[Rfam]
The family of this 131-nucleotide sequence from Catharus fuscescens is "Small nucleolar RNA SNORA5". Its Rfam clan is "SNORA5 clan". NCBI's taxonomy places the organism under Eukaryota, Vertebrata, Tetrapoda, Saurischia, Catharus. ACA5 is a member of the H/ACA class of snoRNA that guide the sites of modification of uridines to pseudouridines.
RNA sequence: UGCAGCCCAGUCAAAUUCGGUCCCUGACCCCCCGUGUUGGGGACCGGCCACCGGCUGCCACAGCAACCGCCGUGCUCCGCGUGUCCCUGUCCCUGCCGUGGGACCGGGCCUGACGGACCCCACGGACACCU
Numbered sequence: 001u002g003c004a005g006c007c008c009a010g011u012c013a014a015a016u017u018c019g020g021u022c023c024c025u026g027a028c029c030c031c032c033c034g035u036g037u038u039g040g041g042g043a044c045c046g047g048c049c050a051c052c053g054g055c056u057g058c059c060a061c062a063g064c065a066a067c068c069g070c071c072g073u074g075c076u077c078c079g080c081g082u083g084u085c086c087c088u089g090u091c092c093c094u095g096c097c098g099u100g101g102g103a104c105c106g107g108g109c110c111u112g113a114c115g116g117a118c119c120c121c122a123c124g125g126a127c128a129c130c131u
Stems, first nucleotide, its partner, number of pairs: 002058004018046011072123003085108003